[Rfam]
Nucleotides: 389
Stems, first nucleotide, its partner, number of pairs: 015131006021029002031123004041094003044059001046057004076090004098114001100112001143194001145192002147162004169187002175181001236305001264283001269278002
Number, partner (000 for none) and nucleotide at each position: 001000u002000a003000c004000u005000u006000c007000u008000c009000a010000c011000u012000c013000c014000a015131g016130a017129c018128c019127u020126u021029g022028a023000c024000c025000u026000g027000a028022u029021c030000g031123u032122c033121u034120g035000a036000u037000u038000a039000u040000c041094g042093a043092u044059a045000c046057g047056u048055a049054a050000a051000c052000g053000u054049u055048u056047g057046c058000c059044u060000a061000u062000a063000c064000a065000c066000a067000c068000c069000c070000u071000g072000a073000a074000u075000a076090c077089a078088a079087u080000u081000u082000u083000c084000a085000a086000c087079a088078u089077u090076g091000c092043a093042u094041c095000a096000c097000g098114u099000c100112g101000g102000g103000a104000a105000a106000a107000c108000g109000a110000c111000a112100c113000a114098g115000a116000a117000c118000g119000a120034c121033a122032g123031g124000a125000a126020g127019g128018g129017g130016u131015c132000a133000a134000u135000g136000g137000c138000c139000g140000a141000u142000a143194c144000g145192c146191u147162u148161u149160c150159a151000a152000a153000u154000u155000a156000g157000c158000g159150u160149g161148g162147g163000a164000u165000u166000u167000u168000g169187u170186c171000c172000g173000a174000u175181c176000u177000u178000g179000c180000g181175g182000c183000a184000a185000a186170g187169g188000g189000g190000a191146a192145g193000a194143g195000c196000a197000a198000a199000a200000a201000u202000g203000u204000g205000c206000a207000u208000c209000a210000c211000c212000c213000u214000a215000a216000a217000a218000c219000a220000u221000g222000g223000a224000a225000g226000a227000u228000u229000u230000u231000u232000g233000c234000g235000c236305u237000a238000u239000a240000u241000u242000g243000u244000g245000c246000a247000a248000a249000a250000a251000u252000g253000a254000g255000c256000a257000a258000g259000c260000u261000c262000a263000c264283u265000u266000u267000u268000c269278a270277u271000g272000u273000g274000g275000g276000g277270a278269u279000a280000a281000c282000u283264g284000g285000g286000g287000g288000g289000a290000a291000a292000a293000a294000u295000u296000g297000a298000u299000g300000g301000a302000u303000a304000c305236a306000g307000a308000u309000u310000u311000a312000a313000a314000g315000u316000u317000u318000u319000c320000g321000c322000u323000g324000a325000c326000g327000a328000c329000a330000a331000c332000g333000a334000u335000u336000a337000u338000u339000g340000u341000c342000c343000u344000g345000g346000g347000u348000c349000u350000c351000a352000u353000c354000g355000u356000g357000g358000c359000c360000g361000c362000c363000g364000g365000c366000c367000u368000g369000a370000c371000a372000g373000c374000g375000g376000u377000g378000c379000u380000g381000c382000a383000c384000u385000g386000a387000u388000u389000u